[Rfam]
RNA sequence: GUUUGUGUGAGGAGGAUAAAAGGAAAUUUGCUCUUGGAGUCGAAACACGGAAAGACGCCCAGGGGCUUUUUCCUUUU
Numbered sequence: 001g002u003u004u005g006u007g008u009g010a011g012g013a014g015g016a017u018a019a020a021a022g023g024a025a026a027u028u029u030g031c032u033c034u035u036g037g038a039g040u041c042g043a044a045a046c047a048c049g050g051a052a053a054g055a056c057g058c059c060c061a062g063g064g065g066c067u068u069u070u071u072c073c074u075u076u077u
Stems, first nucleotide, its partner, number of pairs: 015073001023072004031065002036060002039056003
RNA: Cyano-1 RNA